[Rfam]
RNA: Small nucleolar RNA U2-19
RNA sequence: GAUCAGUGAUGAAAAUAGCCAAAUCUGAGCAUCAGACCUUUUAGUCUACCUGAUACAUGAUCUCUGUAGUUCUGAGA
Numbered sequence: 001g002a003u004c005a006g007u008g009a010u011g012a013a014a015a016u017a018g019c020c021a022a023a024u025c026u027g028a029g030c031a032u033c034a035g036a037c038c039u040u041u042u043a044g045u046c047u048a049c050c051u052g053a054u055a056c057a058u059g060a061u062c063u064c065u066g067u068a069g070u071u072c073u074g075a076g077a
Stems, first nucleotide, its partner, number of pairs: 029056001031054003034047004